[Rfam]
RNA sequence: GAUCCCGUGGCAGUGUGGUUAGCUGGUUGUGGUCCGGCCGGUUGUGACAACCACUAUCUGCAGUGCCGCGUGAUU
Numbered sequence: 001g002a003u004c005c006c007g008u009g010g011c012a013g014u015g016u017g018g019u020u021a022g023c024u025g026g027u028u029g030u031g032g033u034c035c036g037g038c039c040g041g042u043u044g045u046g047a048c049a050a051c052c053a054c055u056a057u058c059u060g061c062a063g064u065g066c067c068g069c070g071u072g073a074u075u
Base pairs, nucleotide, nucleotide: 002074003073004072006070009067010066012064014062015061016060017059018058020056021055022054024053025052026051027050028049029048030047
RNA: mir-34 microRNA precursor family
Organism: Pomacea canaliculata